Notes
MIR2606 microRNA precursor family: a 164-nucleotide RNA sequence from Medicago truncatula. The source organism's lineage runs through Eukaryota, Streptophyta, Papilionoideae, Hologalegina and Medicago.
[Rfam]
RNA sequence: AAAAUUUGGGUACAAUUCUUGAGGUGAUUUUCGUAUGGUUCUUAACUAAAAAUACACCUAUGUUGCAUAUAAUAAACUCUGAGAAAAUCAUGGAUUUGAGGAAAUCAUGGUGAAUUUAGUUAAGAACCAUACGAAAAGCACCUAAGGAAUUGUACCUAAGUUUU
Numbered sequence: 001a002a003a004a005u006u007u008g009g010g011u012a013c014a015a016u017u018c019u020u021g022a023g024g025u026g027a028u029u030u031u032c033g034u035a036u037g038g039u040u041c042u043u044a045a046c047u048a049a050a051a052a053u054a055c056a057c058c059u060a061u062g063u064u065g066c067a068u069a070u071a072a073u074a075a076a077c078u079c080u081g082a083g084a085a086a087a088u089c090a091u092g093g094a095u096u097u098g099a100g101g102a103a104a105u106c107a108u109g110g111u112g113a114a115u116u117u118a119g120u121u122a123a124g125a126a127c128c129a130u131a132c133g134a135a136a137a138g139c140a141c142c143u144a145a146g147g148a149a150u151u152g153u154a155c156c157u158a159a160g161u162u163u164u
Stems, first nucleotide, its partner, number of pairs: 002163007010155004015150006022143004028137016045120006